[Rfam]
RNA sequence: CCAAUUUGUCAGGCCCCUCUCCUCCUCCCUGGGGUCUUUCAAUGGCAGCGGCGCCUCUCCUCCUCCCUGGCGCCGCUGCCCAAAUCAGUUUCGGGGCCCCUCUCCUCCUCCCUGGGGUUCCUAG
Numbered sequence: 001c002c003a004a005u006u007u008g009u010c011a012g013g014c015c016c017c018u019c020u021c022c023u024c025c026u027c028c029c030u031g032g033g034g035u036c037u038u039u040c041a042a043u044g045g046c047a048g049c050g051g052c053g054c055c056u057c058u059c060c061u062c063c064u065c066c067c068u069g070g071c072g073c074c075g076c077u078g079c080c081c082a083a084a085u086c087a088g089u090u091u092c093g094g095g096g097c098c099c100c101u102c103u104c105c106u107c108c109u110c111c112c113u114g115g116g117g118u119u120c121c122u123a124g
Stems, first nucleotide, its partner, number of pairs: 007041002011037007046078010093121008
Rfam assigns this 124-nucleotide sequence from Antarctobacter albus to the family "Alphaproteobacterial ar14". Rfam links the family to the GO term biological process involved in symbiotic interaction.